[Rfam]
RNA sequence: GAACGGGCGCCGCCGAGUCGCCCGCCAGGGCGAGCCGGGGACCCACCGCAGCACUGGGGUGAAUCGCGCGCCGCGCACGUCGCGGCGCGGGUAGGGCCACUUCCCGCCCGAAUCCGUCAGCUAACCCGGUAGGCGGCAGACGGAAGAACG
Numbered sequence: 001g002a003a004c005g006g007g008c009g010c011c012g013c014c015g016a017g018u019c020g021c022c023c024g025c026c027a028g029g030g031c032g033a034g035c036c037g038g039g040g041a042c043c044c045a046c047c048g049c050a051g052c053a054c055u056g057g058g059g060u061g062a063a064u065c066g067c068g069c070g071c072c073g074c075g076c077a078c079g080u081c082g083c084g085g086c087g088c089g090g091g092u093a094g095g096g097c098c099a100c101u102u103c104c105c106g107c108c109c110g111a112a113u114c115c116g117u118c119a120g121c122u123a124a125c126c127c128g129g130u131a132g133g134c135g136g137c138a139g140a141c142g143g144a145a146g147a148a149c150g
Base pairs, nucleotide, nucleotide: 011135012134013133014132018033019032020031021030022029023028034130035129036128037127038126039125044056045055057115058114059113065091067089068088069087070086071085072084073083074082075081094109095108096107097106
RNA: c-di-AMP riboswitch aptamer (ydaO/yuaA leader)